Background: The record is a 230-nucleotide part of an RNA from Anaerococcus lactolyticus, which matches "Bacterial large subunit ribosomal RNA" in Rfam. Taxonomically the source falls in Anaerococcus lactolyticus (Bacteria, Bacillota, Tissierellia, Peptoniphilaceae). The family has 102 seed sequences and 51,934 matches in Rfam 15.1.
RNA sequence: GAGUUAUUCUAAGCGGCAAGAUUAAGUAUCUAAGAUACGGAGUCAAAGCGAAAGCGAGUCUUAAUAGGGCCACAGUCGAUUAGAAUAGACCCGAAACCGGGUGAUCUAUCCAUGGCCAGAGUGAAGGUGAAGUAAAAUUCACUGGAGGCUCGAACCGGGUACGGUUUAAAACGUAUCGGAUGAGUUGUGGAUAGGGGUGAAAAGCCAAACGAACUCGGAUAUAGCUGGUU
Numbered sequence: 001g002a003g004u005u006a007u008u009c010u011a012a013g014c015g016g017c018a019a020g021a022u023u024a025a026g027u028a029u030c031u032a033a034g035a036u037a038c039g040g041a042g043u044c045a046a047a048g049c050g051a052a053a054g055c056g057a058g059u060c061u062u063a064a065u066a067g068g069g070c071c072a073c074a075g076u077c078g079a080u081u082a083g084a085a086u087a088g089a090c091c092c093g094a095a096a097c098c099g100g101g102u103g104a105u106c107u108a109u110c111c112a113u114g115g116c117c118a119g120a121g122u123g124a125a126g127g128u129g130a131a132g133u134a135a136a137a138u139u140c141a142c143u144g145g146a147g148g149c150u151c152g153a154a155c156c157g158g159g160u161a162c163g164g165u166u167u168a169a170a171a172c173g174u175a176u177c178g179g180a181u182g183a184g185u186u187g188u189g190g191a192u193a194g195g196g197g198u199g200a201a202a203a204g205c206c207a208a209a210c211g212a213a214c215u216c217g218g219a220u221a222u223a224g225c226u227g228g229u230u
Base pairs, nucleotide, nucleotide: 005087006086007085008084009083010082011081012080014078015077016076017075020044021043022042023041026038027037028036048055049054058070059069060068061067090228091227093225097218098217099216100215101214102213106194107193108192109191110190111189112188113187114186115185116184117182119151120150121149122148126143127142128141129140130139131138155179156178157177159176160175161174162173163172196206197205198204